Rfam assigns this 107-nucleotide sequence from Malus domestica to the family "Plant small nucleolar RNA R71". Rfam classes the family as a C/D-box small nucleolar RNA. Its family is annotated with RNA processing and nucleolus in the Gene Ontology. It scores 40 bits against the family's covariance model. The base pairs follow the family's consensus structure, which was predicted with PFOLD.

RNA sequence: AACUGGUGUUGAGGGCAUGCGGCACAUAGCUUCUUGUAACUCUCCCAAUAUUUGCAUAAUAGCUCCCCAUGUUGUUGUUGAAUGCCAUAUAUUGCUUUUCUCAAAGU
Numbered sequence: 001a002a003c004u005g006g007u008g009u010u011g012a013g014g015g016c017a018u019g020c021g022g023c024a025c026a027u028a029g030c031u032u033c034u035u036g037u038a039a040c041u042c043u044c045c046c047a048a049u050a051u052u053u054g055c056a057u058a059a060u061a062g063c064u065c066c067c068c069a070u071g072u073u074g075u076u077g078u079u080g081a082a083u084g085c086c087a088u089a090u091a092u093u094g095c096u097u098u099u100c101u102c103a104a105a106g107u
Stems, first nucleotide, its partner, number of pairs: 001107001004104001005102002057074002060071001